[Rfam]
RNA sequence: AUCAUAAUAAUAUAUGUUCGUCGUAUAAUAUUGGGGAUAUGGCCCAAAAGUUUCUACCGAGCUGCCGUUAACAGCUUGACUACGAUGUGAUUGAAAAGGCUG
Numbered sequence: 001a002u003c004a005u006a007a008u009a010a011u012a013u014a015u016g017u018u019c020g021u022c023g024u025a026u027a028a029u030a031u032u033g034g035g036g037a038u039a040u041g042g043c044c045c046a047a048a049a050g051u052u053u054c055u056a057c058c059g060a061g062c063u064g065c066c067g068u069u070a071a072c073a074g075c076u077u078g079a080c081u082a083c084g085a086u087g088u089g090a091u092u093g094a095a096a097a098g099g100c101u102g
Stems, first nucleotide, its partner, number of pairs: 019087007029049001031047005058078007

The family of this 102-nucleotide sequence from Bacillus sp. MUM 13 is "Purine riboswitch aptamer". It scores 87 bits against the family's covariance model. Lineage of the source: Bacteria > Bacillati > Bacillota > Bacilli > Bacillus.